Shown here is an 86-nucleotide RNA sequence from Solanum commersonii, a member of the family "MIR8024 microRNA precursor family". The family's consensus secondary structure was predicted with RNAalifold. Rfam links the family to the GO terms RISC complex and miRNA-mediated post-transcriptional gene silencing. A search with the family's covariance model found it, with a score of 66 bits.
RNA sequence: UUGAAGAAUUUGAAGACUUCAACUUGCAGACAUGGAAUACUUGAAGACUUCAACUUGCAGAAUUAGAGAUUUUGGAGAACUCAAAU
Numbered sequence: 001u002u003g004a005a006g007a008a009u010u011u012g013a014a015g016a017c018u019u020c021a022a023c024u025u026g027c028a029g030a031c032a033u034g035g036a037a038u039a040c041u042u043g044a045a046g047a048c049u050u051c052a053a054c055u056u057g058c059a060g061a062a063u064u065a066g067a068g069a070u071u072u073u074g075g076a077g078a079a080c081u082c083a084a085a086u
Stems, first nucleotide, its partner, number of pairs: 001084004009076006017068003021064001025059004033052004